[Rfam]
RNA sequence: GGAGCCGGUCAGACAACCGCCGCCGUGACGGUCACGGGGGAGGAAAGUCCGGGCUCCGCAGGGCAGUGUGCCAGUUAACGGCUGGGCGGCGCGAGCCGACGGAAAGUGCAACAGAGAGCAAACCGCCGAUGGCCCCGCAAGGGGAUCAGGCAAGGGUGAAACGGUGCGGUAAGAGCGCACCGCGAGUCUGGCAACAGACCGGCACGGCAAACCCCACACGGAGCAAGGCCAAAUAGGGAAGGAGCUGUCGCAAGACAGCAGGCGUGGCCCACGUCCCUUCCGGGUAGGCUGCUGGAACCCACCGGUGACGGUGGGUCUAGAGGAAUGGUUGUCCCGGCCGUGGUCGCGCAAGCGGCGGCGGUUAUGACAGAACCCGGCUUAUAGGCCGGCUCCCACU
Number, nucleotide and partner (000 for none) at each position: 001g393002g392003a391004g390005c389006c388007g387008g386009u385010c384011a382012g333013a332014c331015a330016a329017c328018c327019g000020c040021c039022g000023c037024c036025g035026u034027g033028a032029c000030g000031g000032u028033c027034a026035c025036g024037g023038g000039g021040g020041a000042g000043g000044a000045a380046a379047g378048u000049c377050c376051g375052g374053g373054c223055u222056c221057c220058g000059c000060a000061g270062g269063g268064c267065a000066g219067u218068g217069u216070g215071c085072c084073a083074g082075u081076u000077a000078a000079c000080g000081g075082c074083u073084g072085g071086g100087c098088g097089g096090c095091g000092c000093g000094a000095g090096c089097c088098g087099a000100c086101g214102g213103a000104a000105a000106g212107u211108g208109c207110a000111a000112c000113a000114g000115a000116g000117a000118g000119c000120a000121a000122a000123c155124c154125g151126c150127c149128g000129a000130u148131g147132g146133c000134c144135c143136c000137g000138c000139a000140a000141g000142g000143g135144g134145a000146u132147c131148a130149g127150g126151c125152a000153a000154g124155g123156g000157u000158g000159a000160a000161a000162c000163g181164g180165u179166g178167c177168g176169g000170u000171a000172a000173g000174a000175g000176c168177g167178c166179a165180c164181c163182g203183c201184g200185a000186g199187u198188c197189u196190g195191g000192c000193a000194a000195c190196a189197g188198a187199c186200c184201g183202g000203c182204a000205c000206g000207g109208c108209a000210a000211a107212c106213c102214c101215c070216a069217c068218a067219c066220g057221g056222a055223g054224c000225a000226a000227g290228g289229c288230c287231a000232a000233a000234u000235a000236g000237g281238g280239a279240a278241g277242g276243a000244g000245c000246u000247g000248u000249c000250g000251c000252a000253a000254g000255a000256c000257a000258g000259c000260a000261g275262g274263c273264g272265u271266g000267g064268c063269c062270c061271a265272c264273g263274u262275c261276c242277c241278u240279u239280c238281c237282g000283g000284g000285u000286a000287g230288g229289c228290u227291g000292c000293u000294g000295g000296a000297a316298c315299c314300c313301a312302c311303c310304g309305g000306u000307g000308a000309c304310g303311g302312u301313g300314g299315g298316u297317c000318u000319a000320g000321a000322g000323g000324a000325a000326u000327g018328g017329u016330u015331g014332u013333c012334c000335c000336g000337g000338c000339c000340g000341u000342g000343g000344u000345c000346g000347c000348g000349c000350a000351a000352g000353c000354g000355g000356c000357g000358g000359c000360g000361g000362u000363u000364a000365u000366g000367a000368c000369a000370g000371a000372a000373c053374c052375c051376g050377g049378c047379u046380u045381a000382u011383a000384g010385g009386c008387c007388g006389g005390c004391u003392c002393c001394c000395a000396c000397u000